[Rfam]
RNA sequence: AUGCAUCUAUUUGACAGGCCUGGAGCACUUACUGUCUGCUACUCAGGUCUCCAUUACAGAUGCAAGAAGAAAGCAUCUUCAUGCUUUCUGUUUGUCUGAUUGUGACAGCCCAGAUUGAAUGGGGGAAUACAGGG
Numbered sequence: 001a002u003g004c005a006u007c008u009a010u011u012u013g014a015c016a017g018g019c020c021u022g023g024a025g026c027a028c029u030u031a032c033u034g035u036c037u038g039c040u041a042c043u044c045a046g047g048u049c050u051c052c053a054u055u056a057c058a059g060a061u062g063c064a065a066g067a068a069g070a071a072a073g074c075a076u077c078u079u080c081a082u083g084c085u086u087u088c089u090g091u092u093u094g095u096c097u098g099a100u101u102g103u104g105a106c107a108g109c110c111c112a113g114a115u116u117g118a119a120u121g122g123g124g125g126a127a128u129a130c131a132g133g134g
Stems, first nucleotide, its partner, number of pairs: 002064007012053002016050005024040004076126005084117001087114004092108005
Dot-bracket structure: .(((((((...((..(((((...((((.........)))).....))))).))....)))))))...........(((((...(..((((.(((((.......)))))..))))..)....)))))........